The record is a 102-nucleotide RNA sequence from Bacillus sp. J14TS2, which matches "Purine riboswitch aptamer" in Rfam.
The organism belongs to Bacillus, within Bacteria.
It scores 83 bits against the family's covariance model.
Its family is annotated with purine nucleobase biosynthetic process in the Gene Ontology.
RNA sequence: AAAUUAUCAUCAUUUAUUGAAUGUAUAUGUUUGGGAAUAGGGCCCAAGCGUUUCUACCAGGUAACCGUAAAUUACCAGACUACAUGUAUAAAGAUAGAGAUA
Numbered sequence: 001a002a003a004u005u006a007u008c009a010u011c012a013u014u015u016a017u018u019g020a021a022u023g024u025a026u027a028u029g030u031u032u033g034g035g036a037a038u039a040g041g042g043c044c045c046a047a048g049c050g051u052u053u054c055u056a057c058c059a060g061g062u063a064a065c066c067g068u069a070a071a072u073u074a075c076c077a078g079a080c081u082a083c084a085u086g087u088a089u090a091a092a093g094a095u096a097g098a099g100a101u102a
Base pairs, nucleotide, nucleotide: 018088019087021085022084023083024082025081029049030048031047032046033045034044035043058078060076061075062074063073064072